This 74-nucleotide sequence from Cajanus cajan belongs to the Rfam family "Small nucleolar RNA R21".
The organism belongs to Cajanus, within Eukaryota.
It scores 53 bits against the family's covariance model.
The family has 6 seed sequences and 472 matches in Rfam 15.1.
The family's consensus secondary structure was predicted with PFOLD.
[Rfam]
RNA sequence: UUUCCCUAUGAUGAUAUGUAAUCUUUAAAGUAGUGGACCGAAUUCCCUUGAUGAGAAACGAAAUCUGAGGGAUG
Numbered sequence: 001u002u003u004c005c006c007u008a009u010g011a012u013g014a015u016a017u018g019u020a021a022u023c024u025u026u027a028a029a030g031u032a033g034u035g036g037a038c039c040g041a042a043u044u045c046c047c048u049u050g051a052u053g054a055g056a057a058a059c060g061a062a063a064u065c066u067g068a069g070g071g072a073u074g
Base pairs, nucleotide, nucleotide: 001074003072004071005070006069